RNA sequence: GCAACUCUGGAAAGCAGGUGCGCCCGCCAGGCGCACCUCACCGACGGUGCAAGCCCCACGGUGGGGUGAAGCUCUCAGGUCGCGAUGACGUCGCGAUGACAGAGGGGGAGAU
Numbered sequence: 001g002c003a004a005c006u007c008u009g010g011a012a013a014g015c016a017g018g019u020g021c022g023c024c025c026g027c028c029a030g031g032c033g034c035a036c037c038u039c040a041c042c043g044a045c046g047g048u049g050c051a052a053g054c055c056c057c058a059c060g061g062u063g064g065g066g067u068g069a070a071g072c073u074c075u076c077a078g079g080u081c082g083c084g085a086u087g088a089c090g091u092c093g094c095g096a097u098g099a100c101a102g103a104g105g106g107g108g109a110g111a112u
Stems, first nucleotide, its partner, number of pairs: 002107001005104005016038009040080003043076002047074001049072001053067004
Dot-bracket structure: .(..(((((......(((((((((.....))))))))).(((((..(.(...((((.......))))....).))).)))...................)))))..).....

The record is a 112-nucleotide sequence from Nonomuraea sp. WAC 01424, which matches "Glycine riboswitch aptamer" in Rfam. NCBI's taxonomy places the organism under Bacteria, Bacillati, Actinomycetota, Streptosporangiaceae, Nonomuraea. Its family is annotated with glycine biosynthetic process in the Gene Ontology. The match comes from Rfam's covariance-model search (36 bits).